[Rfam]
RNA sequence: CGAUCGGGGUGACCCGAAUCGUGUCUUCAGAAGUCAGCAGAGGUCGUAGUACCGAGCCUUGCAGUCCAAGCAAGACGGGAAGGAC
Numbered sequence: 001c002g003a004u005c006g007g008g009g010u011g012a013c014c015c016g017a018a019u020c021g022u023g024u025c026u027u028c029a030g031a032a033g034u035c036a037g038c039a040g041a042g043g044u045c046g047u048a049g050u051a052c053c054g055a056g057c058c059u060u061g062c063a064g065u066c067c068a069a070g071c072a073a074g075a076c077g078g079g080a081a082g083g084a085c
Base pairs, nucleotide, nucleotide: 001021002020004017005016006015007014008013034041035040043085044084045083052078053077054076059073060072

Rfam assigns this 85-nucleotide RNA from Rubripirellula tenax to the family "Group II catalytic intron D1-D4-1". The source organism's lineage runs through Bacteria, Pseudomonadati, Planctomycetota, Planctomycetia and Rubripirellula. The match comes from Rfam's covariance-model search (56 bits). About the family: Group II introns are found in rRNA, tRNA and mRNA of organelles in fungi, plants and protists, and also in mRNA in bacteria.